[Rfam]
RNA sequence: CAAGACGAUCCAGUAGCGUAUUUUUUGUUCGCAACACAGGUCAUUAACCUUGAAAUAUUUGAGGGAUGACCUCAUUUAAUCUCCAGUAGCAUUUUGACCUGUAUUGGAGGAAUCAUGCGUCUGGAUCGUCUUAC
Numbered sequence: 001c002a003a004g005a006c007g008a009u010c011c012a013g014u015a016g017c018g019u020a021u022u023u024u025u026u027g028u029u030c031g032c033a034a035c036a037c038a039g040g041u042c043a044u045u046a047a048c049c050u051u052g053a054a055a056u057a058u059u060u061g062a063g064g065g066a067u068g069a070c071c072u073c074a075u076u077u078a079a080u081c082u083c084c085a086g087u088a089g090c091a092u093u094u095u096g097a098c099c100u101g102u103a104u105u106g107g108a109g110g111a112a113u114c115a116u117g118c119g120u121c122u123g124g125a126u127c128g129u130c131u132u133a134c
Stems, first nucleotide, its partner, number of pairs: 002132011016120005024112001026038002029036001048064006065076004080110009
Yersinia sRNA 155(RyfD): a 134-nucleotide RNA. The match comes from Rfam's covariance-model search (104 bits). The pairing is the family consensus, mapped onto this sequence. Rfam describes the family as follows. The sRNA was identified by and is confirmed to have a stable secondary structure by using genome-wide structure probing at different temperatures. The function is unknown. The literature on the family includes a 2016 paper in Proc Natl Acad Sci U S A by Righetti et al., "Temperature-responsive in vitro RNA structurome of Yersinia pseudotuberculosis".